[Rfam]
RNA sequence: CAGUUAAAACGCCCGUAGUUGGCCCCCCGCCGCCACGAGGAAACGGGAGCGCUCCAGGCAGGCCCGUUGGACCCGCCGCGUGGGACCGCGCAGCGGGCGAGGCGCGCCGCGGCAGCCCCGAGGAGAGCGGGCGGGGGCACCGGUACCGGCCGGGGACGGGUGAAACAGGAUGAUCCCGCCGAGACCGCCGGCCGCGCAGGCGCCUGCCAAGACCGCCUCUGUCAAUCAAGGGCGAAGGCCGGGGGCUAGAAGGCGAUCAGACACCACCGUAUUCCCGGCCGUAAACGGUGCCGCCCCGCGGCCGGCGCGCGCGUCCCGCCGGCCGCCCAGGGAAACCGGGAGGCUCCGGGCUCUGGGGGGAGUAUGGCCGCAAGGCUGAAACUUGAAGGCAU
Number, nucleotide and partner (000 for none) at each position: 001c355002a354003g353004u000005u000006a000007a000008a000009a352010c000011g233012c232013c231014c230015g000016u000017a000018g226019u225020u224021g000022g000023c000024c000025c000026c000027c000028c000029g000030c000031c000032g000033c000034c000035a000036c000037g000038a000039g000040g000041a000042a000043a000044c000045g000046g000047g000048a000049g000050c000051g000052c000053u000054c000055c000056a000057g000058g000059c000060a000061g000062g000063c000064c000065c000066g000067u000068u000069g000070g000071a000072c000073c000074c000075g000076c000077c000078g000079c000080g000081u000082g000083g000084g000085a000086c000087c000088g000089c000090g000091c000092a000093g000094c000095g000096g000097g000098c000099g000100a000101g000102g000103c000104g000105c000106g000107c000108c000109g000110c000111g000112g000113c000114a000115g000116c000117c000118c000119c000120g000121a000122g000123g000124a220125g219126a218127g217128c215129g214130g213131g000132c211133g000134g000135g000136g208137g207138c206139a205140c000141c000142g186143g185144u000145a000146c000147c181148g180149g179150c178151c000152g176153g175154g000155g000156a000157c168158g000159g166160g000161u000162g000163a000164a000165a000166c159167a000168g157169g000170a000171u000172g000173a000174u000175c153176c152177c000178g150179c149180c148181g147182a000183g000184a000185c143186c142187g000188c000189c000190g000191g000192c000193c000194g201195c200196g000197c000198a000199g000200g195201c194202g000203c000204c000205u139206g138207c137208c136209a000210a000211g132212a000213c130214c129215g128216c000217c127218u126219c125220u124221g000222u000223c000224a020225a019226u018227c000228a000229a000230g014231g013232g012233c011234g000235a000236a000237g000238g279239c278240c277241g276242g275243g274244g000245g000246c000247u000248a272249g000250a000251a000252g268253g267254c000255g265256a000257u000258c000259a000260g000261a000262c000263a000264c000265c255266a000267c253268c252269g000270u000271a000272u248273u000274c243275c242276c241277g240278g239279c238280c000281g000282u000283a000284a000285a000286c000287g000288g000289u000290g351291c350292c349293g344294c343295c342296c000297c000298g326299c325300g000301g000302c322303c321304g320305g319306c318307g317308c000309g315310c000311g000312c000313g000314u000315c309316c000317c307318g306319c305320c304321g303322g302323c000324c000325g299326c298327c000328c000329a000330g337331g336332g000333a000334a000335a000336c331337c330338g000339g000340g000341a000342g295343g294344c293345u000346c000347c000348g000349g292350g291351c290352u009353c003354u002355g001356g000357g384358g383359g382360g000361a000362g000363u000364a000365u000366g377367g376368c375369c374370g000371c000372a000373a000374g369375g368376c367377u366378g000379a000380a000381a000382c359383u358384u357385g000386a000387a000388g000389g000390c000391a000392u000
A member of the RNA family "Eukaryotic small subunit ribosomal RNA" from Giardia duodenalis, 392 nucleotides of a longer RNA. The organism belongs to Giardia duodenalis, within Eukaryota. Gene Ontology terms of the family: structural constituent of ribosome and ribosome. Pairs were carried over by alignment from the consensus structure, which is taken from published work. Rfam's curators put it in the seed alignment. For this family Rfam cites "Crystal structure of the ribosome at 5.5 A resolution" (Yusupov et al., Science, 2001). Its Rfam clan is "SSU clan".